Rfam assigns this 60-nucleotide RNA from Synechococcus sp. CC9902 to the family "Glutamine-II riboswitch aptamer". Gene Ontology term of the family: glutamine binding. For this family Rfam cites "Structure and ligand binding of the glutamine-II riboswitch" (Huang et al., Nucleic Acids Res, 2019). The family's consensus secondary structure is taken from published work. The sequence is in the family's curated seed alignment.
[Rfam]
RNA sequence: AAACGUUCACCUUGCAUCCGCAAGGCGCAGUCAAGCCAGGCCACGGAACGGGGACCUGGA
Numbered sequence: 001a002a003a004c005g006u007u008c009a010c011c012u013u014g015c016a017u018c019c020g021c022a023a024g025g026c027g028c029a030g031u032c033a034a035g036c037c038a039g040g041c042c043a044c045g046g047a048a049c050g051g052g053g054a055c056c057u058g059g060a
Stems, first nucleotide, its partner, number of pairs: 004050005010025005036059005041053002